[Rfam]
RNA: mir-395 microRNA precursor family
RNA sequence: AUGUCCCCUGGAGUUCCUCAAACCACUUCAGUGGAUGUCUCACCCUCUUCUUUGAGAGCAGACUUCUACUGAAGUGUUUGGAGGAACGCUGGGUGCCAU
Numbered sequence: 001a002u003g004u005c006c007c008c009u010g011g012a013g014u015u016c017c018u019c020a021a022a023c024c025a026c027u028u029c030a031g032u033g034g035a036u037g038u039c040u041c042a043c044c045c046u047c048u049u050c051u052u053u054g055a056g057a058g059c060a061g062a063c064u065u066c067u068a069c070u071g072a073a074g075u076g077u078u079u080g081g082a083g084g085a086a087c088g089c090u091g092g093g094u095g096c097c098a099u
Stems, first nucleotide, its partner, number of pairs: 005095001007093003011089001013087007021079002024076012